Description: The family of this 170-nucleotide RNA sequence from Tractidigestivibacter scatoligenes is "Lysine riboswitch aptamer". Its family is annotated with lysine biosynthetic process in the Gene Ontology. NCBI's taxonomy places the organism under Bacteria, Bacillati, Actinomycetota, Coriobacteriia, Tractidigestivibacter.
[Rfam]
RNA sequence: CCCCACGAUAGAGGAGCGGGCACGAUGGUCCUGGUGGAGCCGGCGGGCGAGGAUUCCAGGAGAGGCGAUGACCGCCGAACUUCCACGUCAGGCAUGGCGUGGCGGUGGGCUCGGCGGGAAUACCGCCGGGACUGUCCGUGGAGAAGAUCUGCGGGAGCGCUAUCCCCGGC
Numbered sequence: 001c002c003c004c005a006c007g008a009u010a011g012a013g014g015a016g017c018g019g020g021c022a023c024g025a026u027g028g029u030c031c032u033g034g035u036g037g038a039g040c041c042g043g044c045g046g047g048c049g050a051g052g053a054u055u056c057c058a059g060g061a062g063a064g065g066c067g068a069u070g071a072c073c074g075c076c077g078a079a080c081u082u083c084c085a086c087g088u089c090a091g092g093c094a095u096g097g098c099g100u101g102g103c104g105g106u107g108g109g110c111u112c113g114g115c116g117g118g119a120a121u122a123c124c125g126c127c128g129g130g131a132c133u134g135u136c137c138g139u140g141g142a143g144a145a146g147a148u149c150u151g152c153g154g155g156a157g158c159g160c161u162a163u164c165c166c167c168g169g170c
Base pairs, nucleotide, nucleotide: 007164008163009162010161011160016075017074018073019072021070023067024066031059032058033057034056036054079106080105081104083102084101085100086099087098088097089096090095107133108132110130111129112128113127114126115125116124117123135155136154137153138152139151140150141149